[Rfam]
RNA sequence: AUCGUUCAUCUCGCUUAUUGAGACGGAAGUAAGUUUUAACUGAAGGAACGCAGA
Numbered sequence: 001a002u003c004g005u006u007c008a009u010c011u012c013g014c015u016u017a018u019u020g021a022g023a024c025g026g027a028a029g030u031a032a033g034u035u036u037u038a039a040c041u042g043a044a045g046g047a048a049c050g051c052a053g054a
Stems, first nucleotide, its partner, number of pairs: 003050005009023005026051001032041003
The family of this 54-nucleotide RNA sequence is "Glutamine riboswitch aptamer (glnA leader)". Rfam's curators put it in the seed alignment.